[Rfam]
RNA: Small nucleolar RNA SNORA13
Organism: Ursus maritimus
RNA sequence: AGUCUUUGUGUUGUCCAUUUACUUUUGGAAACUAGUGAAUGUGAUAUCAAAAAAGGCAGAAACUAAACGCUUUGCAGCCUUUUCCUGUCCUUGAUUUGGGUAUUGCUGGUGUGGGAGCUGCGUAAGUAACAGUU
Numbered sequence: 001a002g003u004c005u006u007u008g009u010g011u012u013g014u015c016c017a018u019u020u021a022c023u024u025u026u027g028g029a030a031a032c033u034a035g036u037g038a039a040u041g042u043g044a045u046a047u048c049a050a051a052a053a054a055g056g057c058a059g060a061a062a063c064u065a066a067a068c069g070c071u072u073u074g075c076a077g078c079c080u081u082u083u084c085c086u087g088u089c090c091u092u093g094a095u096u097u098g099g100g101u102a103u104u105g106c107u108g109g110u111g112u113g114g115g116a117g118c119u120g121c122g123u124a125a126g127u128a129a130c131a132g133u134u
Stems, first nucleotide, its partner, number of pairs: 002057006009049002012046004016041008069127004073122006083116006089109002093104002